[Rfam]
RNA sequence: UAUCCAUUAUACAACUGGCGUAGCAUGGAGUUCACCAUGAGGAAGUAUAAUGUUCUAUGUCGUACGUCUGGGCAAGGUGU
Numbered sequence: 001u002a003u004c005c006a007u008u009a010u011a012c013a014a015c016u017g018g019c020g021u022a023g024c025a026u027g028g029a030g031u032u033c034a035c036c037a038u039g040a041g042g043a044a045g046u047a048u049a050a051u052g053u054u055c056u057a058u059g060u061c062g063u064a065c066g067u068c069u070g071g072g073c074a075a076g077g078u079g080u
Stems, first nucleotide, its partner, number of pairs: 005052008015042002017068005025038004058074004
Rfam assigns this 80-nucleotide RNA sequence from Kurthia sibirica to the family "ZMP/ZTP riboswitch aptamer (pfl RNA motif)".
Gene Ontology terms of the family: regulation of purine nucleotide biosynthetic process and one-carbon metabolic process.
Pairs were carried over by alignment from the consensus structure, which is taken from published work.